[Rfam]
RNA sequence: AUAAUGGCUAGACUGGAGGGUUAGGGGUCCUCUGUAAGCACACACCCCCUCAGGUGCAGUUGAAGUUCAAGGGGCGACUUUGGAAUUAAGUUUUGGCCUUAAAAGGCAACAUAGAAGCUUCGUCCCAUAGGAUCAAUGGUCAUAAGAUUCCAACUGGAGGGUUGGAGUAAAUUAUGUUUAUUUUAGGAAUGUGUUAGGCCUGGAAAGGAGCAGCUCUACUAAUUACAGUUGAUGCUUAUGGGAUAACGGGGUGGAGUUGAUUUUUUAAGAUCACUAAAAUUUAUGAACUUUGUCCACCCUUGAUACAUGCCAUUUA
Numbered sequence: 001a002u003a004a005u006g007g008c009u010a011g012a013c014u015g016g017a018g019g020g021u022u023a024g025g026g027g028u029c030c031u032c033u034g035u036a037a038g039c040a041c042a043c044a045c046c047c048c049c050u051c052a053g054g055u056g057c058a059g060u061u062g063a064a065g066u067u068c069a070a071g072g073g074g075c076g077a078c079u080u081u082g083g084a085a086u087u088a089a090g091u092u093u094u095g096g097c098c099u100u101a102a103a104a105g106g107c108a109a110c111a112u113a114g115a116a117g118c119u120u121c122g123u124c125c126c127a128u129a130g131g132a133u134c135a136a137u138g139g140u141c142a143u144a145a146g147a148u149u150c151c152a153a154c155u156g157g158a159g160g161g162u163u164g165g166a167g168u169a170a171a172u173u174a175u176g177u178u179u180a181u182u183u184u185a186g187g188a189a190u191g192u193g194u195u196a197g198g199c200c201u202g203g204a205a206a207g208g209a210g211c212a213g214c215u216c217u218a219c220u221a222a223u224u225a226c227a228g229u230u231g232a233u234g235c236u237u238a239u240g241g242g243a244u245a246a247c248g249g250g251g252u253g254g255a256g257u258u259g260a261u262u263u264u265u266u267a268a269g270a271u272c273a274c275u276a277a278a279a280u281u282u283a284u285g286a287a288c289u290u291u292g293u294c295c296a297c298c299c300u301u302g303a304u305a306c307a308u309g310c311c312a313u314u315u316a
Stems, first nucleotide, its partner, number of pairs: 003314006011061004015033007038057004065306002067303007076294003087283010098269004102264004107259004112254001117252007124242008132233005137227002139178001141176005147168009183222004191216001193214002199208003
Dot-bracket structure: ..((((((..(((((((((((.....)))))))....((((............))))))))...(((((((((..(((........((((((((((.((((((((.((((.(....(((((((((((((((((((((((.(((((.(((((((((....)))))))))...))))).)....((((....(.((....(((....)))....)).)..))))...)).))))).))))))))...))))))).).)))).)))).))))....))))))))))........)))..))))))).))..))))))..
RNA: Archaeal signal recognition particle RNA
Organism: Methanobrevibacter curvatus